[Rfam]
RNA sequence: ACCCGUACGGGAGGCAUGGAGCGCGGGCGCUCCGCCAGCGCGGCGUCGAUACGGUCGCCAGUCCGACGCGCUGGGCCAAUGGCGAGACCGACCCGUCGAAG
Numbered sequence: 001a002c003c004c005g006u007a008c009g010g011g012a013g014g015c016a017u018g019g020a021g022c023g024c025g026g027g028c029g030c031u032c033c034g035c036c037a038g039c040g041c042g043g044c045g046u047c048g049a050u051a052c053g054g055u056c057g058c059c060a061g062u063c064c065g066a067c068g069c070g071c072u073g074g075g076c077c078a079a080u081g082g083c084g085a086g087a088c089c090g091a092c093c094c095g096u097c098g099a100a101g
Base pairs, nucleotide, nucleotide: 004098005097007096008095009094010093011092013077014076015075021071022070023069024068026067028065029064053089054088055085056084057083058082059081
RNA: c-di-GMP-II-GAG riboswitch aptamer